[Rfam]
RNA sequence: GGGGGCGAUCGGAUUCGACUGGUUCUCCGCGGGUGCAGGUUGCGUGUCGUGGUUGAUCAGUUGGCCACGUAAAAAGCUGAUCAAACAAUAACUGCCAACAAGCAGUACGCUCUGGCUGCCUAAAGCGGCCACCGGUCCGUGAGCUCCGUCUGAAGCGAGCGGGUUGCCGGUCACCCUUCAGACUGGUUUCGAGCUAACUCCGCCGCAAGGCGGGGGCCGACGGCAACUCUCGAAACGAGAACACAUGGCUGUCUGGCUGACGUCCGGGUUUGUUUGUCGUUCCGGCCGGCAGUGAGAUCAAACGACGGAAUACACACGUAGACGCCGCAUCUCAGGGCUCUCAGGACGCGGGUUCAAUUCCCGCCGCCUCCACUU
Numbered sequence: 001g002g003g004g005g006c007g008a009u010c011g012g013a014u015u016c017g018a019c020u021g022g023u024u025c026u027c028c029g030c031g032g033g034u035g036c037a038g039g040u041u042g043c044g045u046g047u048c049g050u051g052g053u054u055g056a057u058c059a060g061u062u063g064g065c066c067a068c069g070u071a072a073a074a075a076g077c078u079g080a081u082c083a084a085a086c087a088a089u090a091a092c093u094g095c096c097a098a099c100a101a102g103c104a105g106u107a108c109g110c111u112c113u114g115g116c117u118g119c120c121u122a123a124a125g126c127g128g129c130c131a132c133c134g135g136u137c138c139g140u141g142a143g144c145u146c147c148g149u150c151u152g153a154a155g156c157g158a159g160c161g162g163g164u165u166g167c168c169g170g171u172c173a174c175c176c177u178u179c180a181g182a183c184u185g186g187u188u189u190c191g192a193g194c195u196a197a198c199u200c201c202g203c204c205g206c207a208a209g210g211c212g213g214g215g216g217c218c219g220a221c222g223g224c225a226a227c228u229c230u231c232g233a234a235a236c237g238a239g240a241a242c243a244c245a246u247g248g249c250u251g252u253c254u255g256g257c258u259g260a261c262g263u264c265c266g267g268g269u270u271u272g273u274u275u276g277u278c279g280u281u282c283c284g285g286c287c288g289g290c291a292g293u294g295a296g297a298u299c300a301a302a303c304g305a306c307g308g309a310a311u312a313c314a315c316a317c318g319u320a321g322a323c324g325c326c327g328c329a330u331c332u333c334a335g336g337g338c339u340c341u342c343a344g345g346a347c348g349c350g351g352g353u354u355c356a357a358u359u360c361c362c363g364c365c366g367c368c369u370c371c372a373c374u375u
Base pairs, nucleotide, nucleotide: 001371002370003369004368005367006366007365019344020343021342022341026337027336028335031332032331033330034329035328036327038326039325040324043318044317045316046315047314048069049068050067051066052065056081057080058079059078060077061076062075113131114130115129116128117127118126119125132170133169134168135167136166137162138161139160140159143156144155145154148183149182150181151180152179153178186236187235188234189233190232191231192230193229256293257292258291259290261288262287264285265284267281268280269279273309274308275307276306277305278304348364349363350362351361352360

The family of this 375-nucleotide sequence from Caulifigura coniformis is "transfer-messenger RNA". By type it is a non-coding RNA gene. The literature on the family includes a 2002 paper in Nucleic Acids Res by Williams, "The tmRNA Website: invasion by an intron". Clan: tRNA clan. The match comes from Rfam's covariance-model search (158 bits). Pairs were carried over by alignment from the consensus structure, which is taken from published work.